[Rfam]
Annotation:
Shown here is a 108-nucleotide RNA sequence from Meloidogyne enterolobii, a member of the family "mir-46/mir-47/mir-281 microRNA precursor family". Rfam links the family to the GO terms RISC complex and miRNA-mediated post-transcriptional gene silencing. The match comes from Rfam's covariance-model search (58 bits). Lineage of the source: Eukaryota > Protostomia > Chromadorea > Meloidogyninae > Meloidogyne. Rfam 15.1 lists 307 matches to the family in 262 species.
RNA sequence: GUUAACAUUUCUGGAAGAGAGCCAUCCCUUGACAGUUUAUAGACGAUAAAAAAUACAUAUAUUUUUUUAAAGUGCUGUCAUGGAGUUGCUCUCUUCAAGUGGAGUUAA
Numbered sequence: 001g002u003u004a005a006c007a008u009u010u011c012u013g014g015a016a017g018a019g020a021g022c023c024a025u026c027c028c029u030u031g032a033c034a035g036u037u038u039a040u041a042g043a044c045g046a047u048a049a050a051a052a053a054u055a056c057a058u059a060u061a062u063u064u065u066u067u068u069a070a071a072g073u074g075c076u077g078u079c080a081u082g083g084a085g086u087u088g089c090u091c092u093c094u095u096c097a098a099g100u101g102g103a104g105u106u107a108a
Stems, first nucleotide, its partner, number of pairs: 014096005020090003025084003031079003035075002